[Rfam]
RNA: rydB RNA
Organism: Sodalis glossinidius
RNA sequence: CCCCAUUGCAGAGCUAAAACCGCCGUCGGGUGAGUUCCGGAGAUAAGCGCCGGGUGGGGACAACUUC
Numbered sequence: 001c002c003c004c005a006u007u008g009c010a011g012a013g014c015u016a017a018a019a020c021c022g023c024c025g026u027c028g029g030g031u032g033a034g035u036u037c038c039g040g041a042g043a044u045a046a047g048c049g050c051c052g053g054g055u056g057g058g059g060a061c062a063a064c065u066u067c
Stems, first nucleotide, its partner, number of pairs: 001059004013035003037053004042048001
Dot-bracket structure: ((((........(((.................))).((((.(.....).))))..))))........